[Rfam]
RNA sequence: UUGCAUUUUUGGGGGGUCAAGGUAGAAGCUUUUACGCUGCGACCCCUUUCAAGCAAUAUCGAUAUCACUUGCAAAUUCUACC
Dot-bracket structure: ............[[[[[[..(((((((((.........))]]]]]]...((((..(((....)))..))))....)))))))
RNA: Mammalian CPEB3 ribozyme